[Rfam]
RNA sequence: AGGCCCUUUUAAAUUGGUCCUGUGAGGCUAAUAAGGGGAUGAAGAAUUACUUAUCUAAUAUAUAUGUGUUUAGAGUAAGUAUUUUUAGACCUCCUUAUAGCCUGACUAGGUUAUAAGGAGGUCUUUUCU
Number, nucleotide and partner (000 for none) at each position: 001a000002g000003g000004c037005c036006c035007u034008u033009u000010u000011a000012a000013a000014u031015u030016g029017g028018u027019c026020c000021u000022g000023u000024g000025a000026g019027g018028c017029u016030a015031a014032u000033a008034a007035g006036g005037g004038g000039a000040u000041g000042a000043a000044g000045a084046a083047u000048u081049a080050c079051u078052u077053a076054u075055c000056u073057a000058a071059u000060a000061u000062a000063u000064a000065u000066g000067u000068g000069u000070u000071u058072a000073g056074a000075g054076u053077a052078a051079g050080u049081a048082u000083u046084u045085u000086u000087a124088g123089a122090c121091c120092u119093c118094c117095u116096u115097a114098u113099a112100g111101c110102c109103u108104g000105a000106c000107u000108a103109g102110g101111u100112u099113a098114u097115a096116a095117g094118g093119a092120g091121g090122u089123c088124u087125u000126u000127u000128c000129u000